[Rfam]
RNA: 23S methyl RNA motif
RNA sequence: UAUUCGUUGGUUUAAAUCAAACCUGUUAUGAUUUAAGGUAACGAGUCAACACCAACCACGCUAUCUGCUGAGCUUGACUCCGGGUAGCGUGGUUAUUUU
Numbered sequence: 001u002a003u004u005c006g007u008u009g010g011u012u013u014a015a016a017u018c019a020a021a022c023c024u025g026u027u028a029u030g031a032u033u034u035a036a037g038g039u040a041a042c043g044a045g046u047c048a049a050c051a052c053c054a055a056c057c058a059c060g061c062u063a064u065c066u067g068c069u070g071a072g073c074u075u076g077a078c079u080c081c082g083g084g085u086a087g088c089g090u091g092g093u094u095a096u097u098u099u
Stems, first nucleotide, its partner, number of pairs: 002046008011037009054094014070080003